[Rfam]
Nucleotides: 257
Stems, first nucleotide, its partner, number of pairs: 013061006062131004067126002070124003074119003150252012
Number, partner (000 for none) and nucleotide at each position: 001000a002000c003000g004000c005000a006000g007000a008000a009000g010000g011000g012000a013061g014060g015059u016058g017057g018056u019000c020000c021000g022000a023000a024000c025000a026000a027000u028000g029000g030000u031000u032000a033000g034000u035000c036000a037000u038000u039000a040000u041000u042000g043000g044000g045000c046000u047000a048000g049000c050000g051000a052000g053000g054000u055000g056018g057017c058016u059015g060014u061013c062131c063130g064129c065128u066000a067126g068125g069000a070124c071123g072122c073000g074119c075118c076117a077000a078000g079000u080000c081000a082000g083000g084000a085000c086000c087000u088000u089000c090000c091000g092000u093000c094000c095000a096000g097000a098000c099000g100000u101000c102000g103000u104000g105000c106000c107000c108000u109000u110000c111000g112000g113000g114000c115000a116000c117076u118075g119074g120000u121000g122072g123071c124070g125068u126067c127000c128065g129064g130063c131062g132000u133000a134000a135000u136000c137000c138000a139000a140000g141000g142000c143000a144000g145000a146000c147000a148000c149000c150252g151251g152250a153249a154248c155247c156246c157245c158244g159243g160242g161241c162000a163000g164000c165000c166000g167000g168000c169000g170000g171000g172000g173000c174000g175000a176000g177000u178000u179000c180000c181000c182000c183000u184000c185000u186000c187000c188000c189000c190000a191000u192000g193000g194000u195000c196000c197000a198000g199000c200000c201000g202000g203000c204000c205000c206000u207000u208000c209000c210000c211000a212000u213000c214000g215000u216000g217000a218000c219000c220000g221000a222000u223000c224000a225000c226000g227000g228000c229000g230000g231000g232000g233000a234000g235000g236000a237000g238000c239000a240000c241161g242160c243159c244158c245157g246156g247155g248154g249153u250152u251151c252150u253000u254000u255000c256000a257000u